Rfam assigns this 71-nucleotide sequence from Callithrix jacchus to the family "Small nucleolar RNA U83B". Rfam describes the family as follows. U83B belongs to the C/D family of snoRNAs.
RNA sequence: UGAAUUUUGGGAUGAGGCCCUGAAAUGCAUGCUGGGCACAGUGCCUGAAUCAGACUGGAAAUAUGAAUUUA
Numbered sequence: 001u002g003a004a005u006u007u008u009g010g011g012a013u014g015a016g017g018c019c020c021u022g023a024a025a026u027g028c029a030u031g032c033u034g035g036g037c038a039c040a041g042u043g044c045c046u047g048a049a050u051c052a053g054a055c056u057g058g059a060a061a062u063a064u065g066a067a068u069u070u071a
Stems, first nucleotide, its partner, number of pairs: 001071007